[Rfam]
RNA sequence: AUACUCAUGUGAUCGCUGUAUAGUAUACAGAGGAAAGUCCAUGCUCACACAAACUGCGAUGUUUGUAGUGUUCGUGCUUGACGAAAUCAUAAGUCAAGGUAACCAUUUUGGUUAACGGCAGGCCAACUACCUACGUCCUGUAAUUGGAUAUGGAAGCGGCCUUGAAAGUGCCACAGUGACGAAGCUGAUUGGGAAACCUUUCAGGUGGAACGAGGUAAACCCCGCGAGUGAGCAACCCAAAUAAUGGUAGGGGCAUCUUCUAGUAGGGAACAGGAACCGAACGAAGGACAAGCUAAGCUUGUAGAUAGAUGAUCACAACCGGAGUACGAGGUUGACCACCGUUUGCAGUACAAUGGUACAGAACAUGGCUUAUCGAG
Numbered sequence: 001a002u003a004c005u006c007a008u009g010u011g012a013u014c015g016c017u018g019u020a021u022a023g024u025a026u027a028c029a030g031a032g033g034a035a036a037g038u039c040c041a042u043g044c045u046c047a048c049a050c051a052a053a054c055u056g057c058g059a060u061g062u063u064u065g066u067a068g069u070g071u072u073c074g075u076g077c078u079u080g081a082c083g084a085a086a087u088c089a090u091a092a093g094u095c096a097a098g099g100u101a102a103c104c105a106u107u108u109u110g111g112u113u114a115a116c117g118g119c120a121g122g123c124c125a126a127c128u129a130c131c132u133a134c135g136u137c138c139u140g141u142a143a144u145u146g147g148a149u150a151u152g153g154a155a156g157c158g159g160c161c162u163u164g165a166a167a168g169u170g171c172c173a174c175a176g177u178g179a180c181g182a183a184g185c186u187g188a189u190u191g192g193g194a195a196a197c198c199u200u201u202c203a204g205g206u207g208g209a210a211c212g213a214g215g216u217a218a219a220c221c222c223c224g225c226g227a228g229u230g231a232g233c234a235a236c237c238c239a240a241a242u243a244a245u246g247g248u249a250g251g252g253g254c255a256u257c258u259u260c261u262a263g264u265a266g267g268g269a270a271c272a273g274g275a276a277c278c279g280a281a282c283g284a285a286g287g288a289c290a291a292g293c294u295a296a297g298c299u300u301g302u303a304g305a306u307a308g309a310u311g312a313u314c315a316c317a318a319c320c321g322g323a324g325u326a327c328g329a330g331g332u333u334g335a336c337c338a339c340c341g342u343u344u345g346c347a348g349u350a351c352a353a354u355g356g357u358a359c360a361g362a363a364c365a366u367g368g369c370u371u372a373u374c375g376a377g
Stems, first nucleotide, its partner, number of pairs: 004377003007373001008317007016030006035371003039368005044232005049066006072227005077098006099116001100114006117222002120162004128155001130153002135149003168220002170216003185204004191198002236252003256287005288302006319356003324351004

Bacterial RNase P class B: a 377-nucleotide sequence from Virgibacillus pantothenticus. Rfam links the family to the GO terms dimeric ribonuclease P complex, tRNA processing and ribonuclease P activity. For this family Rfam cites "Ribonuclease P: unity and diversity in a tRNA processing ribozyme" (Frank and Pace, Annu Rev Biochem, 1998). Pairs were carried over by alignment from the consensus structure, which is taken from published work. A search with the family's covariance model found it, with a score of 300 bits. Ribonuclease P (RNase P) is a ubiquitous endoribonuclease, found in archaea, bacteria and eukarya as well as chloroplasts and mitochondria. Its best characterised activity is the generation of mature 5'-ends of tRNAs by cleaving the 5'-leader elements of precursor-tRNAs.